[Rfam]
RNA sequence: ACCCUUCAAGCUUCCCAUCGGAUACUGAUGCUGGUCUUGGUGGUCGUAAAGGAGGAAGAGCAGAUCGAAGCCGGCCUCAUGGCAAUAUAGUCUGUUAUAGAGCAUUGGGUCAGAUUCAUACAUGC
Number, nucleotide and partner (000 for none) at each position: 001a000002c000003c055004c054005u053006u052007c051008a000009a000010g000011c000012u000013u000014c000015c043016c042017a041018u040019c039020g000021g036022a035023u034024a000025c000026u000027g000028a000029u000030g000031c000032u000033g000034g023035u022036c021037u000038u000039g019040g018041u017042g016043g015044u000045c000046g000047u000048a000049a000050a000051g007052g006053a005054g004055g003056a000057a000058g000059a000060g000061c000062a000063g000064a000065u000066c000067g000068a000069a000070g000071c113072c000073g111074g110075c109076c108077u107078c000079a000080u000081g000082g000083c000084a000085a000086u104087a000088u102089a000090g000091u000092c000093u000094g000095u000096u000097a000098u000099a000100g000101a000102g088103c000104a086105u000106u000107g077108g076109g075110u074111c073112a000113g071114a000115u000116u000117c000118a000119u000120a000121c000122a000123u000124g000125c000
The record is a 125-nucleotide RNA sequence from Microtus ochrogaster, which matches "Small nucleolar RNA SNORA61" in Rfam. Rfam links the family to the GO terms nucleolus and RNA processing. The match comes from Rfam's covariance-model search (78 bits). Taxonomically the source falls in Microtus (Eukaryota, Sarcopterygii, Eutheria, Arvicolinae). ACA61 is a member of the H/ACA class of snoRNA that guide the sites of modification of uridines to pseudouridines. The family's consensus secondary structure was predicted with PFOLD.